[Rfam]
RNA: Yersinia sRNA 224
RNA sequence: GAGGUUGCUGACAAAGCCCGUAGAGCGAGAGUAACGGAUAGAUCGUAAAGACGCUGUGAAUACAUCCUUGUACGCUCGGCUUGCGCCAUCCCUGGCGCAAACGCUUU
Numbered sequence: 001g002a003g004g005u006u007g008c009u010g011a012c013a014a015a016g017c018c019c020g021u022a023g024a025g026c027g028a029g030a031g032u033a034a035c036g037g038a039u040a041g042a043u044c045g046u047a048a049a050g051a052c053g054c055u056g057u058g059a060a061u062a063c064a065u066c067c068u069u070g071u072a073c074g075c076u077c078g079g080c081u082u083g084c085g086c087c088a089u090c091c092c093u094g095g096c097g098c099a100a101a102c103g104c105u106u107u
Stems, first nucleotide, its partner, number of pairs: 013107005019027003029077003041066003045063003051057002081100008